[Rfam]
RNA sequence: GGCUGGUCCAAGUGCAGUGAUGUUUACAACUAAUUGAUUAUAACCAGUUACAGAUUUCUAUUUCUUCUCCACUCCCACUGCUUCACUUGACUAGUCUAAA
Numbered sequence: 001g002g003c004u005g006g007u008c009c010a011a012g013u014g015c016a017g018u019g020a021u022g023u024u025u026a027c028a029a030c031u032a033a034u035u036g037a038u039u040a041u042a043a044c045c046a047g048u049u050a051c052a053g054a055u056u057u058c059u060a061u062u063u064c065u066u067c068u069c070c071a072c073u074c075c076c077a078c079u080g081c082u083u084c085a086c087u088u089g090a091c092u093a094g095u096c097u098a099a100a
Base pairs, nucleotide, nucleotide: 001096002095003094004093005092006091007090008089010088011087014084016079017078018077019076022074032062033061034060036058037057